[Rfam]
RNA sequence: GAGAGGAAGGUGAGAAUCCUUCCGGCCGAAUAUCCAAGGUUUCCAGAGUAAAGCUGAUCUGCUCUGGGUAAGUCGGGGCCUAAGGCGAGGUCGAAAGACGUAGUCGAUGGACAACAGGUUGAGAUUCCUGUACUAUAGUAUAACAGAACUGUGGGGACACAGAUGGAAAGCACAAUCCGGGAAUGGAAAAACCGGUACAAGCGGGGUAGGAGUAGUAAAGGCAAAUCCGUACUACAAUCCGAAGACGUGACGUGGAGCGAACUAAAGUAGCGAAGUGUGUGAGCCAGCUGUCAAGAAAAGCCGCUAUUGUUUAUAUUAUACCCGUACCGUAAACCGACACAGGUGGAUGAGGAGAGAAUCCUAAGGCCGA
Numbered sequence: 001g002a003g004a005g006g007a008a009g010g011u012g013a014g015a016a017u018c019c020u021u022c023c024g025g026c027c028g029a030a031u032a033u034c035c036a037a038g039g040u041u042u043c044c045a046g047a048g049u050a051a052a053g054c055u056g057a058u059c060u061g062c063u064c065u066g067g068g069u070a071a072g073u074c075g076g077g078g079c080c081u082a083a084g085g086c087g088a089g090g091u092c093g094a095a096a097g098a099c100g101u102a103g104u105c106g107a108u109g110g111a112c113a114a115c116a117g118g119u120u121g122a123g124a125u126u127c128c129u130g131u132a133c134u135a136u137a138g139u140a141u142a143a144c145a146g147a148a149c150u151g152u153g154g155g156g157a158c159a160c161a162g163a164u165g166g167a168a169a170g171c172a173c174a175a176u177c178c179g180g181g182a183a184u185g186g187a188a189a190a191a192c193c194g195g196u197a198c199a200a201g202c203g204g205g206g207u208a209g210g211a212g213u214a215g216u217a218a219a220g221g222c223a224a225a226u227c228c229g230u231a232c233u234a235c236a237a238u239c240c241g242a243a244g245a246c247g248u249g250a251c252g253u254g255g256a257g258c259g260a261a262c263u264a265a266a267g268u269a270g271c272g273a274a275g276u277g278u279g280u281g282a283g284c285c286a287g288c289u290g291u292c293a294a295g296a297a298a299a300g301c302c303g304c305u306a307u308u309g310u311u312u313a314u315a316u317u318a319u320a321c322c323c324g325u326a327c328c329g330u331a332a333a334c335c336g337a338c339a340c341a342g343g344u345g346g347a348u349g350a351g352g353a354g355a356g357a358a359u360c361c362u363a364a365g366g367c368c369g370a
Base pairs, nucleotide, nucleotide: 005023006022007021008020009019010018024368025367026366027365032348033347034346035345038328039327043067044066045065046064047063048062052060053059074324075323076322077321079110080109084105085104086103088101090099091098092097114131115130116129117128118127134320135319136318137317138316139315140314141313142312143311151304152303153302154301159291160290161289162288165285166284170280171279172278173277174276175196176195177194179192197253198252201248202247203246209240210239212235213234214233215232216231217230220228221227257271258270260268334343335342350362351361352360353359

The record is a 370-nucleotide part of an RNA from Robinsoniella sp. RHS, which matches "Bacterial large subunit ribosomal RNA" in Rfam.
Rfam links the family to the GO terms structural constituent of ribosome and ribosome.